[Rfam]
Nucleotides: 127
Stems, first nucleotide, its partner, number of pairs: 028057005034045003091112007
Number, partner (000 for none) and nucleotide at each position: 001000a002000a003000u004000u005000c006000g007000a008000a009000u010000a011000a012000a013000a014000g015000a016000u017000u018000a019000c020000c021000g022000u023000a024000g025000a026000c027000a028057g029056u030055a031054g032053g033000u034045g035044u036043g037000c038000a039000u040000g041000u042000g043036c044035a045034c046000u047000u048000a049000a050000u051000u052000c053032c054031c055030u056029a057028c058000c059000g060000a061000g062000g063000u064000g065000g066000c067000u068000u069000g070000g071000a072000u073000a074000a075000a076000a077000u078000g079000u080000g081000u082000a083000u084000u085000u086000u087000u088000g089000c090000g091112g092111c093110c094109u095108u096107c097106g098000a099000c100000u101000g102000u103000c104000u105000a106097c107096g108095g109094a110093g111092g112091c113000u114000u115000u116000u117000u118000c119000u120000a121000u122000u123000u124000c125000u126000g127000a
Ribosomal protein L10 leader: a 127-nucleotide RNA from Thermoflavimicrobium daqui. The family's consensus secondary structure was predicted with CMfinder. It is annotated as a cis-regulatory leader. Taxonomically the source falls in Thermoflavimicrobium (Bacteria, Bacillati, Bacilli, Caryophanales). This family is a putative r-protein leader autoregulatory structure found in B. subtilis and other low-GC Gram-positive bacteria. It is located in the 5' untranslated regions of mRNAs encoding ribosomal proteins L10 and L12 (rplJ-rplL). A Rho-independent transcription terminator structure that is probably involved in regulation is included at the 3' end.